The record is an 85-nucleotide sequence from Xylanibacillus composti, which matches "c-di-GMP-I riboswitch aptamer" in Rfam. From the family's description: GEMM was predicted in a large-scale screen for bacterial structured RNA regulatory elements. Lineage of the source: Bacteria > Bacillati > Caryophanales > Paenibacillaceae > Xylanibacillus. A search with the family's covariance model found it, with a score of 70 bits.

RNA sequence: UAGCGACAAGGGCAAACUAUUCGAAAGAAUAGGACGCAAAGCUAUAGGGGCUUCUUCCUUAAAGGAAAGCCAGCCAGCUGCACGA
Numbered sequence: 001u002a003g004c005g006a007c008a009a010g011g012g013c014a015a016a017c018u019a020u021u022c023g024a025a026a027g028a029a030u031a032g033g034a035c036g037c038a039a040a041g042c043u044a045u046a047g048g049g050g051c052u053u054c055u056u057c058c059u060u061a062a063a064g065g066a067a068a069g070c071c072a073g074c075c076a077g078c079u080g081c082a083c084g085a
Stems, first nucleotide, its partner, number of pairs: 012037002017032006040079004047075002049071003056066004